[Rfam]
RNA sequence: GUGCAAAUGAUAGAGAAAAAAUCACUAUUUGUGAGGGGAAAAAAAAUGACACGAAAAAGGAACCACUGAUGCAC
Numbered sequence: 001g002u003g004c005a006a007a008u009g010a011u012a013g014a015g016a017a018a019a020a021a022u023c024a025c026u027a028u029u030u031g032u033g034a035g036g037g038g039a040a041a042a043a044a045a046a047u048g049a050c051a052c053g054a055a056a057a058a059g060g061a062a063c064c065a066c067u068g069a070u071g072c073a074c
Stems, first nucleotide, its partner, number of pairs: 001074005
Small nucleolar RNA SNORD42: a 74-nucleotide RNA sequence from Capra hircus. By type it is a C/D-box small nucleolar RNA. Rfam 15.1 lists 848 matches to the family in 572 species. A reference for the family is Galardi et al. (2002), "Purified box C/D snoRNPs are able to reproduce site-specific 2'-O-methylation of target RNA in vitro", Mol Cell Biol. A search with the family's covariance model found it, with a score of 48 bits. Taxonomically the source falls in Capra (Eukaryota, Mammalia, Eutheria, Boreoeutheria). Rfam's curators write: snoRNA U42 is found in intron 3 of the ribosomal protein L23a (RPL23a) gene in humans and is also present in mice.